[Rfam]
The record is a 76-nucleotide RNA from Menidia menidia, which matches "Small nucleolar RNA SNORD101" in Rfam.
RNA sequence: GCAUGAAUGAUGAUUUGCAUUCUUUUGUCGGAUACCCCUUCACUCUACAGUGAGUGAGACACUCCUUCUGACAUGC
Numbered sequence: 001g002c003a004u005g006a007a008u009g010a011u012g013a014u015u016u017g018c019a020u021u022c023u024u025u026u027g028u029c030g031g032a033u034a035c036c037c038c039u040u041c042a043c044u045c046u047a048c049a050g051u052g053a054g055u056g057a058g059a060c061a062c063u064c065c066u067u068c069u070g071a072c073a074u075g076c
Stems, first nucleotide, its partner, number of pairs: 001076005
The family is grouped with related families in Rfam's "SNORD101 clan". The organism belongs to Menidia, within Eukaryota. By type it is a C/D-box small nucleolar RNA. Its family is annotated with nucleolus and RNA processing in the Gene Ontology. On this family, see Vitali et al., Nucleic Acids Res 2003: "Identification of 13 novel human modification guide RNAs". The base pairs follow the family's consensus structure, which was predicted with PFOLD. It scores 60 bits against the family's covariance model.